[Rfam]
RNA sequence: CAUGGGGGACCUGCACGUCUGUCCCAUCCCGGGGCAUGGCGUGACACCCAUCGUGACCGGCAGCUUCGACAC
Numbered sequence: 001c002a003u004g005g006g007g008g009a010c011c012u013g014c015a016c017g018u019c020u021g022u023c024c025c026a027u028c029c030c031g032g033g034g035c036a037u038g039g040c041g042u043g044a045c046a047c048c049c050a051u052c053g054u055g056a057c058c059g060g061c062a063g064c065u066u067c068g069a070c071a072c
Stems, first nucleotide, its partner, number of pairs: 008070001017040003020036002023033003051069003055065001

Shown here is a 72-nucleotide sequence from Desulfobulbus oligotrophicus, a member of the family "Pseudomonas sRNA P10".
NCBI's taxonomy places the organism under Bacteria, Pseudomonadati, Thermodesulfobacteriota, Desulfobulbaceae, Desulfobulbus.
On this family, see Livny et al., Nucleic Acids Res 2006: "Identification of 17 Pseudomonas aeruginosa sRNAs and prediction of sRNA-encoding genes in 10 diverse pathogens using the bioinformatic tool sRNAPredict2".
The family's RNA type in Rfam is small RNA.
The family has 8 seed sequences and 62 matches in Rfam 15.1.